S4-Bacteroidia ribosomal protein leader: a 39-nucleotide RNA sequence. It is annotated as a cis-regulatory leader. For this family Rfam cites "Discovery of 20 novel ribosomal leader candidates in bacteria and archaea" (Eckert and Weinberg, BMC Microbiol, 2020). It is one of the family's seed sequences.
[Rfam]
RNA sequence: GAUUGUCACCUAUACCUGCCCUCUCGACAAUCGCGGCUG
Numbered sequence: 001g002a003u004u005g006u007c008a009c010c011u012a013u014a015c016c017u018g019c020c021c022u023c024u025c026g027a028c029a030a031u032c033g034c035g036g037c038u039g
Stems, first nucleotide, its partner, number of pairs: 001032007